[Rfam]
RNA sequence: UUUUUAGUGUAAGUAUGUCUCAUGCAAUAUCUGAGAUAUACUUAGGCUGAAA
Numbered sequence: 001u002u003u004u005u006a007g008u009g010u011a012a013g014u015a016u017g018u019c020u021c022a023u024g025c026a027a028u029a030u031c032u033g034a035g036a037u038a039u040a041c042u043u044a045g046g047c048u049g050a051a052a
Base pairs, nucleotide, nucleotide: 006048007047008046010044011043012042014040015039016038018036019035020034021033
This 52-nucleotide RNA from Nannospalax galili belongs to the Rfam family "mir-1302 microRNA precursor family". Rfam 15.1 lists 16,160 matches to the family in 135 species. The literature on the family includes a 2008 paper in Genome Res by Morin et al., "Application of massively parallel sequencing to microRNA profiling and discovery in human embryonic stem cells". Lineage of the source: Eukaryota > Deuterostomia > Dipnotetrapodomorpha > Glires > Nannospalax. Gene Ontology terms of the family: RISC complex and miRNA-mediated post-transcriptional gene silencing. The family's consensus secondary structure was predicted with WAR.